[Rfam]
RNA: mir-15 microRNA precursor family
RNA sequence: GGCAGCCAUGCUUUAGCAGCACGUAAAUAUUGGAGUUAAACCACUUCAUAUCUCUCCAGUAUUGAUCGUGCUGCUGAAGUAAGAUUGUU
Numbered sequence: 001g002g003c004a005g006c007c008a009u010g011c012u013u014u015a016g017c018a019g020c021a022c023g024u025a026a027a028u029a030u031u032g033g034a035g036u037u038a039a040a041c042c043a044c045u046u047c048a049u050a051u052c053u054c055u056c057c058a059g060u061a062u063u064g065a066u067c068g069u070g071c072u073g074c075u076g077a078a079g080u081a082a083g084a085u086u087g088u089u
Stems, first nucleotide, its partner, number of pairs: 001089005013077011024065001026063010